[Rfam]
This 99-nucleotide sequence from Clostridium butyricum belongs to the Rfam family "SAM riboswitch aptamer (S box leader)". Taxonomically the source falls in Clostridium butyricum (Bacteria, Bacillati, Bacillota, Clostridium). Pairs were carried over by alignment from the consensus structure, which is taken from published work. Its family is annotated with regulation of gene expression in the Gene Ontology. The sequence is in the family's curated seed alignment.

RNA sequence: CUCUUAUCAAGAGAGGUGGAGGGAUAGGGCCCAGUGAAACCCGGCAACCUGUAUAUACAAGGUGCCAAUUCCUGUAGAUGUAAUUCUACAAGAUAAGAA
Numbered sequence: 001c002u003c004u005u006a007u008c009a010a011g012a013g014a015g016g017u018g019g020a021g022g023g024a025u026a027g028g029g030c031c032c033a034g035u036g037a038a039a040c041c042c043g044g045c046a047a048c049c050u051g052u053a054u055a056u057a058c059a060a061g062g063u064g065c066c067a068a069u070u071c072c073u074g075u076a077g078a079u080g081u082a083a084u085u086c087u088a089c090a091a092g093a094u095a096a097g098a099a
Base pairs, nucleotide, nucleotide: 002098003097004096005095006094007093008092013042015041016040017039021032022031023030027073028072029071043066044065045064046063048062049061050059051058052057070091075088076087077086078085